[Rfam]
RNA sequence: GUGCCAAGGGUUAGUCUUCUACGACCAGCUCCUUUUGAACUCCCCCAGGGCGGGAACGCAGCAAGGGUAAAAAGUCGUAGCGGUGCGAUAGAAGGGGCUAGCCCCUUU
Numbered sequence: 001g002u003g004c005c006a007a008g009g010g011u012u013a014g015u016c017u018u019c020u021a022c023g024a025c026c027a028g029c030u031c032c033u034u035u036u037g038a039a040c041u042c043c044c045c046c047a048g049g050g051c052g053g054g055a056a057c058g059c060a061g062c063a064a065g066g067g068u069a070a071a072a073a074g075u076c077g078u079a080g081c082g083g084u085g086c087g088a089u090a091g092a093a094g095g096g097g098c099u100a101g102c103c104c105c106u107u108u
Stems, first nucleotide, its partner, number of pairs: 008104008017093005022087002024084002
The record is a 108-nucleotide sequence from Arcticibacter pallidicorallinus, which matches "Bacteroidales small SRP" in Rfam.
The base pairs follow the family's consensus structure, which is taken from published work.
It scores 97 bits against the family's covariance model.
NCBI's taxonomy places the organism under Bacteria, Bacteroidota, Sphingobacteriia, Sphingobacteriaceae, Arcticibacter.
Its Rfam clan is "SRP clan".
The literature on the family includes a 2020 paper in Nat Commun by Ryan et al., "A high-resolution transcriptome map identifies small RNA regulation of metabolism in the gut microbe Bacteroides thetaiotaomicron".
Gene Ontology terms of the family: signal recognition particle, plasma membrane targeting and SRP-dependent cotranslational protein targeting to membrane, signal sequence recognition.